[Rfam]
RNA sequence: UGGGUGAUUAUGUACUUUUAUAAAAGGGUGUCUCUUGAAAUCUCAAGAAAAUUUCUCUAGAUAGUCAAGUUCUGAUCCAG
Numbered sequence: 001u002g003g004g005u006g007a008u009u010a011u012g013u014a015c016u017u018u019u020a021u022a023a024a025a026g027g028g029u030g031u032c033u034c035u036u037g038a039a040a041u042c043u044c045a046a047g048a049a050a051a052u053u054u055c056u057c058u059a060g061a062u063a064g065u066c067a068a069g070u071u072c073u074g075a076u077c078c079a080g
Base pairs, nucleotide, nucleotide: 001079002078003077004076

The record is an 80-nucleotide sequence from Carlito syrichta, which matches "Small nucleolar RNA SNORD20" in Rfam. The organism belongs to Carlito, within Eukaryota. Rfam links the family to the GO terms nucleolus and RNA processing. For this family Rfam cites "U20, a novel small nucleolar RNA, is encoded in an intron of the nucleolin gene in mammals" (Nicoloso et al., Mol Cell Biol, 1994). It scores 53 bits against the family's covariance model. About the family: U20 is a C/D box small nucleolar RNA that is encoded in intron 11 of the nucleolin gene in human, mouse and rat.